Flavo-1 RNA: a 75-nucleotide RNA from Polaribacter sp. Hel1_33_78.
The family's RNA type in Rfam is small RNA.
The family has 201 seed sequences and 7,497 matches in Rfam 15.1.
RNA sequence: AUUUUGCGUUAGCGAUUGCAAUGACAUCCUUUUAUGAAGGUUGAAUAAAAGAUAUAAUGAAAAGCGCGACCUUGU
Dot-bracket structure: ...........(((.((...((...(((...((((.........))))..)))...))...)).)))........